Notes:
tRNA: a 107-nucleotide RNA from Halomicrobium zhouii. The base pairs follow the family's consensus structure, which is taken from published work.
RNA sequence: GGGCCCUUAGCUUAGCCUGGUUAAAGCGACCGGCUCAUAUUUCCACGCUCGGUUCCGAGGUGGAAUGGGUGACCGGUUGAGCGCUGGUUCAAAUCCGGCAGGGCCCA
Numbered sequence: 001g002g003g004c005c006c007u008u009a010g011c012u013u014a015g016c017c018u019g020g021u022u023a024a025a026g027c028g029a030c031c032g033g034c035u036c037a038u039a040u041u042u043c044c045a046c047g048c049u050c051g052g053u054u055c056c057g058a059g060g061u062g063g064a065a066u067g068g069g070u071g072a073c074c075g076g077u078u079g080a081g082c083g084c085u086g087g088u089u090c091a092a093a094u095c096c097g098g099c100a101g102g103g104c105c106c107a
Base pairs, nucleotide, nucleotide: 001106002105003104004103005102006101007100010027011026012025013024029077030076031075032074033073083099084098085097086096087095